A member of the RNA family "Bacterial small subunit ribosomal RNA" from uncultured Poribacteria bacterium 64K2, 586 nucleotides of a longer RNA.
Its family is annotated with ribosome and structural constituent of ribosome in the Gene Ontology.
It is one of the family's seed sequences.
The family has 99 seed sequences and 42,628 matches in Rfam 15.1.
The base pairs follow the family's consensus structure, which is taken from published work.

RNA sequence: UGACGGGGGGCCGCACAAGCGGUGGAGCAUGUCGCUUAAUUCGAAGCAACGCGAAGAACCUUAUCCAGGGCUUGACAUCGCAGUGACCGCUAUAGAAAUAUAGUUUUCCUUCGGGACACUAUGACAGGUGCUGCAUGGCUGUCGUCAGCUCGUGUCGUGAGAUGUUGGGUUAAGUCCCGCAACGAGCGCAACCCCUGUCUUUAGUUGCCAUCAGGUAAUGCUGAGCACUCUAAAGAGACCGCUGGUGACGAGCCAGAGGAAGGUGGGGAUGACGUCAAGUCCGCAUGGCCCUUAUGCCCUGGGCUGCACACGUGCUACAAUGGUCGGUACAGAGGGACGCCAAACCGUGAGGUGGAGCAAAUCCCAAAAAGCCGACCCCAGUUCGGAUUGCAGUCUGCAACUCGACUGCAUGAAGUUGGAAUCGCUAGUAAUCGCGAAUCAGCAGGUCGCGGUGAAUACGUUCCCGGCCCUUGUACACACCGCCCGUCACGCCAUGGGAGUUGGUAGCAUUCGAAGCGGGUGACCCAACCUUCGGGAGGGAGCUCUCUAAAAUGAAACCGAUGACCGGGGCGAAGUCGUAACAAGG
Number, nucleotide and partner (000 for none) at each position: 001u477002g476003a474004c473005g472006g000007g471008g470009g469010g468011c467012c466013g465014c000015a461016c460017a000018a000019g425020c424021g423022g422023u421024g318025g000026a316027g315028c314029a313030u312031g311032u310033c000034g307035c306036u000037u000038a000039a000040u055041u054042c053043g052044a000045a000046g000047c000048a000049a000050c000051g000052c043053g042054a041055a040056g000057a000058a000059c000060c000061u000062u000063a000064u000065c302066c301067a300068g299069g298070g297071c296072u000073u000074g000075a000076c000077a000078u124079c123080g000081c000082a120083g119084u118085g117086a000087c000088c000089g104090c103091u102092a101093u100094a099095g000096a000097a000098a000099u094100a093101u092102a091103g090104u089105u000106u000107u116108c115109c114110u000111u000112c000113g000114g109115g108116a107117c085118a084119c083120u082121a000122u000123g079124a078125c000126a000127g291128g290129u000130g289131c288132u287133g286134c000135a000136u285137g284138g280139c279140u278141g276142u000143c274144g273145u000146c000147a000148g187149c186150u185151c184152g183153u182154g163155u162156c161157g000158u000159g000160a000161g156162a155163u154164g000165u000166u179167g178168g177169g176170u000171u000172a000173a000174g000175u000176c169177c168178c167179g166180c000181a000182a153183c152184g151185a150186g149187c148188g000189c000190a000191a000192c000193c268194c267195c266196u265197g000198u236199c235200u234201u233202u232203a231204g230205u000206u000207g000208c225209c000210a000211u000212c223213a222214g221215g000216u000217a000218a000219u000220g000221c214222u213223g212224a000225g208226c000227a000228c000229u000230c204231u203232a202233a201234a200235g199236a198237g000238a000239c259240c258241g000242c256243u255244g254245g253246u252247g000248a000249c000250g000251a000252g246253c245254c244255a243256g242257a000258g240259g239260a000261a000262g000263g000264u000265g196266g195267g194268g193269a000270u000271g000272a000273c144274g143275u000276c141277a000278a140279g139280u138281c000282c000283g000284c137285a136286u133287g132288g131289c130290c128291c127292u000293u000294a000295u000296g071297c070298c069299c068300u067301g066302g065303g000304c000305u000306g035307c034308a000309c000310a032311c031312g030313u029314g028315c027316u026317a000318c024319a000320a000321u000322g377323g376324u375325c374326g373327g372328u371329a000330c000331a000332g000333a000334g365335g364336g363337a000338c000339g358340c357341c000342a000343a000344a353345c352346c351347g000348u000349g000350a000351g346352g345353u344354g000355g000356a000357g340358c339359a000360a000361a000362u000363c336364c335365c334366a000367a000368a000369a000370a000371g328372c327373c326374g325375a324376c323377c322378c000379c000380a000381g000382u000383u000384c415385g000386g000387a000388u000389u410390g409391c408392a407393g406394u405395c404396u000397g000398c000399a000400a000401c000402u000403c000404g395405a394406c393407u392408g391409c390410a389411u000412g000413a000414a000415g384416u000417u000418g000419g000420a000421a023422u022423c021424g020425c019426u000427a000428g000429u000430a000431a453432u452433c451434g450435c449436g448437a447438a000439u000440c000441a000442g000443c000444a000445g000446g000447u437448c436449g435450c434451g433452g432453u431454g000455a000456a000457u000458a000459c000460g016461u015462u000463c000464c000465c013466g012467g011468c010469c009470c008471u007472u005473g004474u003475a000476c002477a001478c000479a000480c585481c000482g582483c000484c000485c578486g577487u000488c000489a000490c572491g571492c570493c569494a000495u567496g566497g565498g000499a000500g562501u561502u560503g559504g558505u557506a000507g000508c554509a553510u552511u551512c000513g000514a000515a000516g547517c000518g545519g544520g543521u542522g000523a000524c540525c539526c538527a000528a000529c536530c535531u000532u000533c000534g000535g530536g529537a000538g526539g525540g524541a000542g521543c520544u519545c518546u000547c516548u000549a000550a000551a511552a510553u509554g508555a000556a000557a505558c504559c503560g502561a501562u500563g000564a000565c497566c496567g495568g000569g493570g492571c491572g490573a000574a000575g000576u000577c486578g485579u000580a000581a000582c482583a000584a000585g480586g000